[Rfam]
The family of this 78-nucleotide sequence from Colius striatus is "mir-19 microRNA precursor family". The base pairs follow the family's consensus structure, which was predicted with RNAalifold.
RNA sequence: GAUCACAAUCAGUUUUGCAGGUUUGCAUCCCAGCUUACUAAGAUUGCUGUGCAAAUCCAUGCAAAACUGACUGUGUUG
Numbered sequence: 001g002a003u004c005a006c007a008a009u010c011a012g013u014u015u016u017g018c019a020g021g022u023u024u025g026c027a028u029c030c031c032a033g034c035u036u037a038c039u040a041a042g043a044u045u046g047c048u049g050u051g052c053a054a055a056u057c058c059a060u061g062c063a064a065a066a067c068u069g070a071c072u073g074u075g076u077u078g
Stems, first nucleotide, its partner, number of pairs: 004075004009070011020058002022055007032048003
The match comes from Rfam's covariance-model search (76 bits).